[Rfam]
The family of this 63-nucleotide sequence is "Glutamine-II riboswitch aptamer".
RNA sequence: CAACGUUCACUUCGCUACACAGCGGAGCGCAGUUCGACCGGCGCCAUGGAACGGGGACGCCGG
Number, nucleotide and partner (000 for none) at each position: 001c000002a000003a000004c053005g052006u051007u050008c049009a000010c027011u026012u025013c024014g023015c000016u000017a000018c000019a000020c000021a000022g000023c014024g013025g012026a011027g010028c000029g000030c000031a000032g000033u000034u000035c000036g000037a000038c063039c062040g061041g060042c059043g058044c056045c055046a000047u000048g000049g008050a007051a006052c005053g004054g000055g045056g044057a000058c043059g042060c041061c040062g039063g038
Description:
For this family Rfam cites "Structure and ligand binding of the glutamine-II riboswitch" (Huang et al., Nucleic Acids Res, 2019). Pairs were carried over by alignment from the consensus structure, which is taken from published work. Its family is annotated with glutamine binding in the Gene Ontology.